[Rfam]
RNA sequence: GGUGUGGCUAGGGUCGCUCCCGAAAAGCGGCAACCUCACCGCCUGCCACGUCCAUGAUGAGGC
Numbered sequence: 001g002g003u004g005u006g007g008c009u010a011g012g013g014u015c016g017c018u019c020c021c022g023a024a025a026a027g028c029g030g031c032a033a034c035c036u037c038a039c040c041g042c043c044u045g046c047c048a049c050g051u052c053c054a055u056g057a058u059g060a061g062g063c
Stems, first nucleotide, its partner, number of pairs: 001052008011021003027042004034062004
The record is a 63-nucleotide RNA sequence from Pseudomonas phage vB_PaS_IME307, which matches "int-alpA RNA" in Rfam.
Rfam's curators write: Acidobacteria (1 example), Planctomycetes (1 example), Proteobacteria.
The family's RNA type in Rfam is small RNA.
The source organism's lineage runs through Viruses, Duplodnaviria, Uroviricota, Caudoviricetes and Detrevirus.
The match comes from Rfam's covariance-model search (42 bits).